[Rfam]
Rfam assigns this 84-nucleotide sequence from Fervidibacillus halotolerans to the family "Group II catalytic intron D1-D4-1". The match comes from Rfam's covariance-model search (78 bits). Rfam 15.1 lists 2,508 matches to the family in 1,144 species. The base pairs follow the family's consensus structure. Group II introns are found in rRNA, tRNA and mRNA of organelles in fungi, plants and protists, and also in mRNA in bacteria.
RNA sequence: CAACCUGUUUAGUGAUAAACAGCUGAACUAUCAGAAGUCAGCAGAGGUCAUAGUAUUAGUUGAUCUAGAACAACUAAGAAGGAC
Numbered sequence: 001c002a003a004c005c006u007g008u009u010u011a012g013u014g015a016u017a018a019a020c021a022g023c024u025g026a027a028c029u030a031u032c033a034g035a036a037g038u039c040a041g042c043a044g045a046g047g048u049c050a051u052a053g054u055a056u057u058a059g060u061u062g063a064u065c066u067a068g069a070a071c072a073a074c075u076a077a078g079a080a081g082g083a084c
Base pairs, nucleotide, nucleotide: 001025002024005022006021007020008019009018010017011016038045039044047084048083049082056077057076058075059074060073061072